[Rfam]
RNA sequence: UAGAAGUGGGGGCUCCUUUCAGCCUAAAACAGCUUCAAGAUUUUAGCUGGUGUUGUGUUGGCCUAUCUUGAUUAUCUGUUUUGGACUGAAGGGAGCUCCUAAUUCUU
Numbered sequence: 001u002a003g004a005a006g007u008g009g010g011g012g013c014u015c016c017u018u019u020c021a022g023c024c025u026a027a028a029a030c031a032g033c034u035u036c037a038a039g040a041u042u043u044u045a046g047c048u049g050g051u052g053u054u055g056u057g058u059u060g061g062c063c064u065a066u067c068u069u070g071a072u073u074a075u076c077u078g079u080u081u082u083g084g085a086c087u088g089a090a091g092g093g094a095g096c097u098c099c100u101a102a103u104u105c106u107u
Stems, first nucleotide, its partner, number of pairs: 007101012021087002024084009
RNA: MIR319 microRNA precursor family